[Rfam]
RNA sequence: GUCGGCUACGGUGACAUGGUACCAACUACAAUUGGUGGCAAGAUUGUAGGCUCCUUGUGUGCCAUUGCAGGUGUGCUAACCAUUGCCCUGCCAGUGCCUGUCAUUGUGUCCAAC
Numbered sequence: 001g002u003c004g005g006c007u008a009c010g011g012u013g014a015c016a017u018g019g020u021a022c023c024a025a026c027u028a029c030a031a032u033u034g035g036u037g038g039c040a041a042g043a044u045u046g047u048a049g050g051c052u053c054c055u056u057g058u059g060u061g062c063c064a065u066u067g068c069a070g071g072u073g074u075g076c077u078a079a080c081c082a083u084u085g086c087c088c089u090g091c092c093a094g095u096g097c098c099u100g101u102c103a104u105u106g107u108g109u110c111c112a113a114c
Stems, first nucleotide, its partner, number of pairs: 001114002004111002007108005013102004018097001021095002037077004049063003
The record is a 114-nucleotide sequence from Oryzias javanicus, which matches "Potassium channel RNA editing signal" in Rfam.
From the family's description: This family represents a group of sequences related to the human potassium channel Kv1.1 hairpin element which directs the efficient modification of an adenosine to inosine by an adenosine deaminase acting on RNA (ADAR). The ADAR modification causes an isoleucine/valine recoding event which lies in the ion-conducting pore of the potassium channel. It is thought that this editing event targets the process of fast inactivation and allows a more rapid recovery from inactivation at negative potentials.
The family's consensus secondary structure is taken from published work.
The match comes from Rfam's covariance-model search (114 bits).
On this family, see Bhalla et al., Nat Struct Mol Biol 2004: "Control of human potassium channel inactivation by editing of a small mRNA hairpin".